[Rfam]
RNA: rpsB sRNA
RNA sequence: CACACGCGGGCAAUGCGGCCUUCGGGGAGACAUCCCGACAGUCGCUCCGGUGUCUGAAAUCUCAGGUUUUCCGCCAAGUUAUGGCGUUUUUCUGAGACCAGAUGACAGGCCCGCGGUGGACCAACCGGAGAAGAUCUUAU
Numbered sequence: 001c002a003c004a005c006g007c008g009g010g011c012a013a014u015g016c017g018g019c020c021u022u023c024g025g026g027g028a029g030a031c032a033u034c035c036c037g038a039c040a041g042u043c044g045c046u047c048c049g050g051u052g053u054c055u056g057a058a059a060u061c062u063c064a065g066g067u068u069u070u071c072c073g074c075c076a077a078g079u080u081a082u083g084g085c086g087u088u089u090u091u092c093u094g095a096g097a098c099c100a101g102a103u104g105a106c107a108g109g110c111c112c113g114c115g116g117u118g119g120a121c122c123a124a125c126c127g128g129a130g131a132a133g134a135u136c137u138u139a140u
Stems, first nucleotide, its partner, number of pairs: 001118003005115007015045002023037002026034001052103005